The record is a 95-nucleotide sequence from Capsicum baccatum, which matches "Small nucleolar RNA Z122" in Rfam. Gene Ontology terms of the family: nucleolus and RNA processing. A reference for the family is Qu et al. (1999), "Seven novel methylation guide small nucleolar RNAs are processed from a common polycistronic transcript by Rat1p and RNase III in yeast", Mol Cell Biol. Rfam classes the family as a C/D-box small nucleolar RNA. Lineage of the source: Eukaryota > Euphyllophyta > Gunneridae > Capsiceae > Capsicum.
[Rfam]
RNA sequence: GUUGGGAAAUGGUGACAAGUUAUUUUGAAUACACACUGAGAAAGUGGCAGGUUUUGCUGAUCAAUCUGUUUUUUGCACGUCAGUCUGAUCCCUAC
Numbered sequence: 001g002u003u004g005g006g007a008a009a010u011g012g013u014g015a016c017a018a019g020u021u022a023u024u025u026u027g028a029a030u031a032c033a034c035a036c037u038g039a040g041a042a043a044g045u046g047g048c049a050g051g052u053u054u055u056g057c058u059g060a061u062c063a064a065u066c067u068g069u070u071u072u073u074u075g076c077a078c079g080u081c082a083g084u085c086u087g088a089u090c091c092c093u094a095c
Stems, first nucleotide, its partner, number of pairs: 001095002004092004